[Rfam]
RNA: Streptomyces sRNA scr5239
RNA sequence: GCUUCAUCCUCCCCGCACAGGAGGAUGAAAUCGGAGGACGGCGCUCUCUGCCCUGACUGCGCCCGCCCCUCCACACGGCCGGAGGCACCGCACGCCGCCGGCCGAGCAACUCCGGGCUGCGGUGCCGGGUGGGCCGAGGGUCCCACCGGGCGC
Numbered sequence: 001g002c003u004u005c006a007u008c009c010u011c012c013c014c015g016c017a018c019a020g021g022a023g024g025a026u027g028a029a030a031u032c033g034g035a036g037g038a039c040g041g042c043g044c045u046c047u048c049u050g051c052c053c054u055g056a057c058u059g060c061g062c063c064c065g066c067c068c069c070u071c072c073a074c075a076c077g078g079c080c081g082g083a084g085g086c087a088c089c090g091c092a093c094g095c096c097g098c099c100g101g102c103c104g105a106g107c108a109a110c111u112c113c114g115g116g117c118u119g120c121g122g123u124g125c126c127g128g129g130u131g132g133g134c135c136g137a138g139g140g141u142c143c144c145a146c147c148g149g150g151c152g153c
Stems, first nucleotide, its partner, number of pairs: 003029004008024005033071002036068002039065001040063002043060002045056002076104006084096003109123003113119002127147001129146005
Dot-bracket structure: ..((((.(((((.......))))).))))...((.((.(((.((((........))..)).)).).)).))....((((((..(((.......)))..))))))....(((.((...)).)))...(.(((((........))))))......